Notes:
This 131-nucleotide RNA from Desulfosporosinus sp. I2 belongs to the Rfam family "Ribosomal protein L20 leader". By type it is a cis-regulatory leader. The family's consensus secondary structure was predicted with CMfinder. This family is a putative r-protein leader autoregulatory structure found in B. subtilis and other low-GC Gram-positive bacteria. It is located in the 5' untranslated regions of mRNAs encoding initiation factor 3 followed by ribosomal proteins L35 and L20 (infC-rpmI-rplT). A Rho-independent transcription terminator structure that is probably involved in regulation is included at the 3' end. On this family, see Zengel and Lindahl, Prog Nucleic Acid Res Mol Biol 1994: "Diverse mechanisms for regulating ribosomal protein synthesis in Escherichia coli". The source organism's lineage runs through Bacteria, Clostridia, Eubacteriales, Desulfitobacteriaceae and Desulfosporosinus. The match comes from Rfam's covariance-model search (68 bits).

[Rfam]
RNA sequence: UAAGUCAAGUAGAAGCCAUCCGCUUCUCACCUUACGACGUUCGUUGUUAAGGUAUCUUCUGGUCUUGAGCUUAGUUGUGCUCGUGAUUAUAUAGAAGACGGGUGGUAAUUCAUCCGUCUUUUUUGUUUGUG
Numbered sequence: 001u002a003a004g005u006c007a008a009g010u011a012g013a014a015g016c017c018a019u020c021c022g023c024u025u026c027u028c029a030c031c032u033u034a035c036g037a038c039g040u041u042c043g044u045u046g047u048u049a050a051g052g053u054a055u056c057u058u059c060u061g062g063u064c065u066u067g068a069g070c071u072u073a074g075u076u077g078u079g080c081u082c083g084u085g086a087u088u089a090u091a092u093a094g095a096a097g098a099c100g101g102g103u104g105g106u107a108a109u110u111c112a113u114c115c116g117u118c119u120u121u122u123u124u125g126u127u128u129g130u131g
Base pairs, nucleotide, nucleotide: 011027012026013025014024015023016022029053030052031051034047035046036045037044038043097118098117099116100115101114102113103112104111105110